The record is a 304-nucleotide RNA from Lupinus angustifolius, which matches "Plant signal recognition particle RNA" in Rfam. It is annotated as a non-coding RNA gene. Taxonomically the source falls in Lupinus (Eukaryota, Viridiplantae, rosids, Fabales).

[Rfam]
RNA sequence: GCCGAGCUGGGUAACUCUUGCUUGUGACCUAAGUGGGGGCAUCAAGGUGAUAGAACAUGGCUAUGGUUCGUCUGGGUUGGGGUGGUAGCUGCACCAUGUUGGCCUGCCCGCUCCAAGUUGAGAGUUGAGACAUGAUGCUUGGGUGAAAGCUGAGGUGUCAUGUCUCUUAGACAAGAGGGAAAAGCGUGAGGCUGGCUUCACAGAGCAACGAACACCUCUGGCUCCUGGCAGUGGAGGGAUCACGGGCUGCUGCAUUACAAUCCUACAAUACCUAGUGAGCCAAAGUAUUUGAACCAUCACUUUU
Numbered sequence: 001g002c003c004g005a006g007c008u009g010g011g012u013a014a015c016u017c018u019u020g021c022u023u024g025u026g027a028c029c030u031a032a033g034u035g036g037g038g039g040c041a042u043c044a045a046g047g048u049g050a051u052a053g054a055a056c057a058u059g060g061c062u063a064u065g066g067u068u069c070g071u072c073u074g075g076g077u078u079g080g081g082g083u084g085g086u087a088g089c090u091g092c093a094c095c096a097u098g099u100u101g102g103c104c105u106g107c108c109c110g111c112u113c114c115a116a117g118u119u120g121a122g123a124g125u126u127g128a129g130a131c132a133u134g135a136u137g138c139u140u141g142g143g144u145g146a147a148a149g150c151u152g153a154g155g156u157g158u159c160a161u162g163u164c165u166c167u168u169a170g171a172c173a174a175g176a177g178g179g180a181a182a183a184g185c186g187u188g189a190g191g192c193u194g195g196c197u198u199c200a201c202a203g204a205g206c207a208a209c210g211a212a213c214a215c216c217u218c219u220g221g222c223u224c225c226u227g228g229c230a231g232u233g234g235a236g237g238g239a240u241c242a243c244g245g246g247c248u249g250c251u252g253c254a255u256u257a258c259a260a261u262c263c264u265a266c267a268a269u270a271c272c273u274a275g276u277g278a279g280c281c282a283a284a285g286u287a288u289u290u291g292a293a294c295c296a297u298c299a300c301u302u303u304u
Base pairs, nucleotide, nucleotide: 001040002039003038004023005022006021007020009018010017011016028037029036030035044303045302046301047300048299049298050297051296053294056291057290060286061285062284064282065281066280068279072275073274074273075272076271077270079264080263081262082261083260085258086257087256090254091253100249101248102247103246104245105244106243108238109237111236112235113234114233115232117229118228119227120226122224123223124222125221127166128165129164130163131162132161133160134159135158136157137156138155139154140153142151143150144149174219175218176217177216178215185210186209187208192203193202194201
Dot-bracket structure: (((((((.(((....))).))))....(((....))))))...((((((((.(..((..(((.(((.(...((((((.(((((.(((..((........(((((((.((.(((((.((((.((((.((((((((((((((.(((....))).)))))))))))))).......(((((......(((....(((......)))....)))....))))).)))).))))..)))))))....)))))))...)).))).))))).....))))))...)))).)))...))..).)))))))).